[Rfam]
RNA sequence: GGCGGCGUGUUGCUGAGCCCCAUGGCGAUCUACGCGGUAUUGGCGCUGCUGCUGACCGGCGCGUUGCGCCUCGGCUUGCAGCGCAUCGGGCUGACGCGCUGGAUCUGGCACGAGGCCCUGUUCGACUGUGCCCUA
Numbered sequence: 001g002g003c004g005g006c007g008u009g010u011u012g013c014u015g016a017g018c019c020c021c022a023u024g025g026c027g028a029u030c031u032a033c034g035c036g037g038u039a040u041u042g043g044c045g046c047u048g049c050u051g052c053u054g055a056c057c058g059g060c061g062c063g064u065u066g067c068g069c070c071u072c073g074g075c076u077u078g079c080a081g082c083g084c085a086u087c088g089g090g091c092u093g094a095c096g097c098g099c100u101g102g103a104u105c106u107g108g109c110a111c112g113a114g115g116c117c118c119u120g121u122u123c124g125a126c127u128g129u130g131c132c133c134u135a
Base pairs, nucleotide, nucleotide: 002067003066004065005064006063007062008061009060010059011058012052013051016047017046018045019043020042022040023039068133076096079093080092081091098131099130102127104125105124108121109120110119
Notes: The family of this 135-nucleotide sequence from Pseudomonas sp. THAF187a is "Pseudomonas sRNA P18". It scores 82 bits against the family's covariance model. The source organism's lineage runs through Bacteria, Pseudomonadota, Gammaproteobacteria, Pseudomonadaceae and Pseudomonas. Pairs were carried over by alignment from the consensus structure, which was predicted with WAR.